[Rfam]
RNA sequence: GGGAGUGCUUGGCUCUGAGAACUGAAUUCCAUAGAUGGUUGAUUUCCUCAAACCCAUCUGGGUUCAGUUCUUGAAGCUCGGUACUUCAGA
Numbered sequence: 001g002g003g004a005g006u007g008c009u010u011g012g013c014u015c016u017g018a019g020a021a022c023u024g025a026a027u028u029c030c031a032u033a034g035a036u037g038g039u040u041g042a043u044u045u046c047c048u049c050a051a052a053c054c055c056a057u058c059u060g061g062g063u064u065c066a067g068u069u070c071u072u073g074a075a076g077c078u079c080g081g082u083a084c085u086u087c088a089g090a
Base pairs, nucleotide, nucleotide: 008081009080011078012077013076018071019070020069021068022067023066024065025064033059034058035057036056